[Rfam]
RNA sequence: CCUUUGGAGUGCUGCACAAACGCUAGUAGCUUGCCCCUUUGGGACAGCGAGAGCGAGCAUGAUGAACAAGGAA
Numbered sequence: 001c002c003u004u005u006g007g008a009g010u011g012c013u014g015c016a017c018a019a020a021c022g023c024u025a026g027u028a029g030c031u032u033g034c035c036c037c038u039u040u041g042g043g044a045c046a047g048c049g050a051g052a053g054c055g056a057g058c059a060u061g062a063u064g065a066a067c068a069a070g071g072a073a
Base pairs, nucleotide, nucleotide: 001071002070003069004068009060010059011058012057013056021055022054023053029048030047031046034043035042
This 73-nucleotide sequence belongs to the Rfam family "RAGATH-18 RNA".